The family of this 114-nucleotide RNA from Bagarius yarrelli is "Potassium channel RNA editing signal". About the family: This family represents a group of sequences related to the human potassium channel Kv1.1 hairpin element which directs the efficient modification of an adenosine to inosine by an adenosine deaminase acting on RNA (ADAR). The ADAR modification causes an isoleucine/valine recoding event which lies in the ion-conducting pore of the potassium channel. It is thought that this editing event targets the process of fast inactivation and allows a more rapid recovery from inactivation at negative potentials.
RNA sequence: GUGGGCUACGGUGACAUGCACCCUGUGACCAUCGGCGGGAAAAUCGUCGGCUCAUUGUGUGCAAUUGCUGGGGUACUGACGAUCGCUCUGCCAGUGCCUGUUAUCGUCUCCAAU
Numbered sequence: 001g002u003g004g005g006c007u008a009c010g011g012u013g014a015c016a017u018g019c020a021c022c023c024u025g026u027g028a029c030c031a032u033c034g035g036c037g038g039g040a041a042a043a044u045c046g047u048c049g050g051c052u053c054a055u056u057g058u059g060u061g062c063a064a065u066u067g068c069u070g071g072g073g074u075a076c077u078g079a080c081g082a083u084c085g086c087u088c089u090g091c092c093a094g095u096g097c098c099u100g101u102u103a104u105c106g107u108c109u110c111c112a113a114u
Stems, first nucleotide, its partner, number of pairs: 001114002004111002008107004013102004018097004037077002040074001050062002